Source information:
The record is a 165-nucleotide RNA sequence from Blastomyces dermatitidis, which matches "A. fumigatus sRNA Afu_254" in Rfam.

RNA sequence: UAAUACAUUUAAAGGCAAUCCAAAAAUCUUACCGAAUUUCAAAACAAAUUCAUCACCCAUCUACCCAUCCAAAAAUGUCUCCCUGCAACUGCAACUGCUGUGCCGGCGACUGCAACUCCUGCAGCUGCACCAGCUGCUCUGUGAGUUGAUAUAAAAACAAGGGUU
Numbered sequence: 001u002a003a004u005a006c007a008u009u010u011a012a013a014g015g016c017a018a019u020c021c022a023a024a025a026a027u028c029u030u031a032c033c034g035a036a037u038u039u040c041a042a043a044a045c046a047a048a049u050u051c052a053u054c055a056c057c058c059a060u061c062u063a064c065c066c067a068u069c070c071a072a073a074a075a076u077g078u079c080u081c082c083c084u085g086c087a088a089c090u091g092c093a094a095c096u097g098c099u100g101u102g103c104c105g106g107c108g109a110c111u112g113c114a115a116c117u118c119c120u121g122c123a124g125c126u127g128c129a130c131c132a133g134c135u136g137c138u139c140u141g142u143g144a145g146u147u148g149a150u151a152u153a154a155a156a157a158c159a160a161g162g163g164u165u
Base pairs, nucleotide, nucleotide: 084114085113086112087111097107098106099105118143120141127134128133
The literature on the family includes a 2008 paper in Nucleic Acids Res by Jochl et al., "Small ncRNA transcriptome analysis from Aspergillus fumigatus suggests a novel mechanism for regulation of protein synthesis". Rfam's curators put it in the seed alignment.